[Rfam]
Nucleotides: 312
Stems, first nucleotide, its partner, number of pairs: 002311007011064004015033006038060005069303005078294004082289001089284004094279005100270005107263003112258001114256001120253006126244008134235005139229002141179001143177009153166005182226007192219005201210003
Number, partner (000 for none) and nucleotide at each position: 001000a002311g003310g004309u005308g006307g007306a008305c009000u010000a011064g012063g013062u014061c015033g016032g017031g018030c019029a020028g021000u022000u023000a024000g025000g026000c027000c028020c029019u030018g031017c032016u033015c034000a035000c036000a037000a038060c039059c040058c041057g042056c043000a044000c045000u046000a047000u048000g049000g050000u051000c052000u053000u054000u055000a056042g057041c058040g059039g060038g061014g062013a063012c064011c065000g066000a067000a068000c069303c070302c071301c072300g073299g074000a075000c076000g077000c078294g079293u080292c081291c082289g083000g084000a085000c086000a087000g088000a089284c090283c091282c092281g093000u094279u095278c096277g097276g098275g099000c100270c101269c102268c103267g104266g105000a106000a107263g108262c109261c110000g111000a112258c113000g114256u115000g116000g117000a118000a119000a120253c121252c122251u123250c124249g125248u126244c127243c128242c129241u130240c131239g132238g133237g134235g135234g136233c137232c138231a139229c140228g141179g142000u143177u144176c145175g146174c147173g148172g149171c150170g151169u152000c153166c154165g155164c156163c157162c158000g159000c160000a161000g162157g163156g164155g165154c166153g167000u168000c169151a170150c171149g172148u173147c174146g175145c176144g177143a178000u179141u180000c181000g182226c183225c184224g185223g186222c187221g188220g189000c190000a191000g192219u193218u194217c195216g196215u197000c198000a199000g200000g201210c202209g203208c204000g205000g206000a207000a208203g209202c210201g211000a212000g213000c214000a215196g216195c217194g218193a219192a220188c221187c222186g223185c224184u225183g226182g227000a228140c229139g230000a231138u232137g233136g234135u235134c236000g237133c238132u239131c240130g241129a242128g243127g244126g245000g246000u247000c248125g249124c250123g251122g252121g253120g254000c255000g256114g257000a258112g259000g260000a261109g262108g263107c264000a265000a266104c267103c268102g269101g270100g271000c272000u273000u274000c275098c276097c277096c278095g279094g280000c281092c282091g283090g284089g285000a286000a287000c288000g289082c290000c291081g292080g293079g294078c295000a296000a297000c298000g299073c300072c301071g302070g303069g304000c305008g306007u307006c308005c309004g310003u311002u312000c
Shown here is a 312-nucleotide RNA sequence from Natranaeroarchaeum sulfidigenes, a member of the family "Archaeal signal recognition particle RNA". NCBI's taxonomy places the organism under Archaea, Methanobacteriota, Halobacteria, Natronoarchaeaceae, Natranaeroarchaeum. On this family, see Regalia et al., Nucleic Acids Res 2002: "Prediction of signal recognition particle RNA genes". Its Rfam clan is "SRP clan". By type it is a non-coding RNA gene. Its family is annotated with signal recognition particle, plasma membrane targeting and SRP-dependent cotranslational protein targeting to membrane, signal sequence recognition in the Gene Ontology.